[Rfam]
RNA: drz-agam-1 ribozyme
RNA sequence: CGCUACUACCAAACCCUAUCUCCAUCUCCACGCGGUGAUCGCUGGGAGCUCUUCCUUACUGAAAAGCUGCAGACGGAGAAGG
Numbered sequence: 001c002g003c004u005a006c007u008a009c010c011a012a013a014c015c016c017u018a019u020c021u022c023c024a025u026c027u028c029c030a031c032g033c034g035g036u037g038a039u040c041g042c043u044g045g046g047a048g049c050u051c052u053u054c055c056u057u058a059c060u061g062a063a064a065a066g067c068u069g070c071a072g073a074c075g076g077a078g079a080a081g082g
Stems, first nucleotide, its partner, number of pairs: 015082003019078001021076002024036003047068004052063002055061001